[Rfam]
RNA sequence: AGCUGUGUGAUAAGCACAGAGUGAAUUAUUCUUUCACCUUUUUCUAAAGAAUACCGUGUGUCUGUCACUAAAAACAACAUAUAAUAAUUUUUGAAAGGGCUUUUUUUUUUUACAAAGGU
Numbered sequence: 001a002g003c004u005g006u007g008u009g010a011u012a013a014g015c016a017c018a019g020a021g022u023g024a025a026u027u028a029u030u031c032u033u034u035c036a037c038c039u040u041u042u043u044c045u046a047a048a049g050a051a052u053a054c055c056g057u058g059u060g061u062c063u064g065u066c067a068c069u070a071a072a073a074a075c076a077a078c079a080u081a082u083a084a085u086a087a088u089u090u091u092u093g094a095a096a097g098g099g100c101u102u103u104u105u106u107u108u109u110u111u112a113c114a115a116a117g118g119u
Stems, first nucleotide, its partner, number of pairs: 004076003008067005014061005027053008095119001100118005

Rfam assigns this 119-nucleotide RNA from Zingiber officinale to the family "U5 spliceosomal RNA".
It scores 73 bits against the family's covariance model.
The source organism's lineage runs through Eukaryota, Magnoliopsida, Liliopsida, Zingiberales and Zingiber.